Overview: Shown here is an 80-nucleotide RNA sequence from Phyllostomus discolor, a member of the family "mir-2366 microRNA precursor family". Rfam 15.1 lists 41 matches to the family in 41 species. The base pairs follow the family's consensus structure, which was predicted with RNAalifold. Gene Ontology terms of the family: miRNA-mediated post-transcriptional gene silencing and RISC complex.

RNA sequence: GCCCUGGCCCCAGGCUCCUCUUGCCAGAGCCCCAGAAAGAGGAGAGAGCUGGGUCACAGUAGAGGGUCUUGUGGAAGGUU
Numbered sequence: 001g002c003c004c005u006g007g008c009c010c011c012a013g014g015c016u017c018c019u020c021u022u023g024c025c026a027g028a029g030c031c032c033c034a035g036a037a038a039g040a041g042g043a044g045a046g047a048g049c050u051g052g053g054u055c056a057c058a059g060u061a062g063a064g065g066g067u068c069u070u071g072u073g074g075a076a077g078g079u080u
Base pairs, nucleotide, nucleotide: 003078004077005076008074009073011071013069014068016066017065018064019063020062021061025059027057029055031053032052033051034050035049